[Rfam]
RNA sequence: CCCUUCUCUUCAAAGCACCCUGUUGGAACUGCAGGAGUGGAACCGCAGCGGUUUAGCUCGUGUGGCUGUGUCAGCAUGGGUUUAGCAGGGAAGGAGAUCAGAGCACUGCAUCGUAAAUGAGGCCAGGAAGGACCUCUUUCUUAAUGUCCACUUUCCUUUGUCUCUUGAUCCAGUGCUACAUUA
Numbered sequence: 001c002c003c004u005u006c007u008c009u010u011c012a013a014a015g016c017a018c019c020c021u022g023u024u025g026g027a028a029c030u031g032c033a034g035g036a037g038u039g040g041a042a043c044c045g046c047a048g049c050g051g052u053u054u055a056g057c058u059c060g061u062g063u064g065g066c067u068g069u070g071u072c073a074g075c076a077u078g079g080g081u082u083u084a085g086c087a088g089g090g091a092a093g094g095a096g097a098u099c100a101g102a103g104c105a106c107u108g109c110a111u112c113g114u115a116a117a118u119g120a121g122g123c124c125a126g127g128a129a130g131g132a133c134c135u136c137u138u139u140c141u142u143a144a145u146g147u148c149c150a151c152u153u154u155c156c157u158u159u160g161u162c163u164c165u166u167g168a169u170c171c172a173g174u175g176c177u178a179c180a181u182u183a
Stems, first nucleotide, its partner, number of pairs: 018079002021076005028069002031066001035059001037057002040054005102177007110169001125154001127152001130149003

The family of this 183-nucleotide RNA sequence from Oryzias sinensis is "Small nucleolar RNA SNORA81". Pairs were carried over by alignment from the consensus structure, which was predicted with WAR. NCBI's taxonomy places the organism under Eukaryota, Teleostomi, Teleostei, Adrianichthyoidei, Oryzias. On this family, see Gu et al., Nucleic Acids Res 2005: "A novel experimental approach for systematic identification of box H/ACA snoRNAs from eukaryotes". Its family is annotated with nucleolus and RNA processing in the Gene Ontology. The family has 28 seed sequences and 1,161 matches in Rfam 15.1.